[Rfam]
RNA sequence: UGGGCUUUUUGGCAAACCGUCGGAAACGGCGGGACGCAAAGCCACAGGGACUAAGGCAGUUGGAAACGUAGUUGAAUUGAAUCAGUUAGAUUGAAUUUGAAAGUGUUUGAAAUUGUUAUGUCAGCCUGGCUGCUAAU
Numbered sequence: 001u002g003g004g005c006u007u008u009u010u011g012g013c014a015a016a017c018c019g020u021c022g023g024a025a026a027c028g029g030c031g032g033g034a035c036g037c038a039a040a041g042c043c044a045c046a047g048g049g050a051c052u053a054a055g056g057c058a059g060u061u062g063g064a065a066a067c068g069u070a071g072u073u074g075a076a077u078u079g080a081a082u083c084a085g086u087u088a089g090a091u092u093g094a095a096u097u098u099g100a101a102a103g104u105g106u107u108u109g110a111a112a113u114u115g116u117u118a119u120g121u122c123a124g125c126c127u128g129g130c131u132g133c134u135a136a137u
Stems, first nucleotide, its partner, number of pairs: 012037002017032006040131004046127003049122003056116006

Source information: Shown here is a 137-nucleotide RNA from Acetatifactor muris, a member of the family "c-di-GMP-I riboswitch aptamer".